psaA RNA: a 211-nucleotide RNA from Synechococcus sp. WH 5701.
RNA sequence: CUUAUACUUCCGCCAGCGGUCCCCUCAUCGGGGCCCCAGCUCCAGUGCUGGCAGCGGCUUUCGGUCUUUUCCGAAGCCACUCCGCACUGGUGCCCAUGGUUCCAAGGAUCUCGAUCCACGGAACCGUGAGGCCCACCGGCCUGGCCUUUCGGCCCGGUCCGGAGGGGUGGACCUCCACCUCGACUCCGUCCCUCGAGGAACGUCUCGAUGA
Numbered sequence: 001c002u003u004a005u006a007c008u009u010c011c012g013c014c015a016g017c018g019g020u021c022c023c024c025u026c027a028u029c030g031g032g033g034c035c036c037c038a039g040c041u042c043c044a045g046u047g048c049u050g051g052c053a054g055c056g057g058c059u060u061u062c063g064g065u066c067u068u069u070u071c072c073g074a075a076g077c078c079a080c081u082c083c084g085c086a087c088u089g090g091u092g093c094c095c096a097u098g099g100u101u102c103c104a105a106g107g108a109u110c111u112c113g114a115u116c117c118a119c120g121g122a123a124c125c126g127u128g129a130g131g132c133c134c135a136c137c138g139g140c141c142u143g144g145c146c147u148u149u150c151g152g153c154c155c156g157g158u159c160c161g162g163a164g165g166g167g168u169g170g171a172c173c174u175c176c177a178c179c180u181c182g183a184c185u186c187c188g189u190c191c192c193u194c195g196a197g198g199a200a201c202g203u204c205u206c207g208a209u210g211a
Stems, first nucleotide, its partner, number of pairs: 018172001020170001021167006030137002032133004039093002042090007056078003060075003063071002095128009106117004138160002140157002143154004178198006
Taxonomically the source falls in Synechococcus (Bacteria, Bacillati, Cyanobacteriota, Synechococcales). By type it is a cis-regulatory element.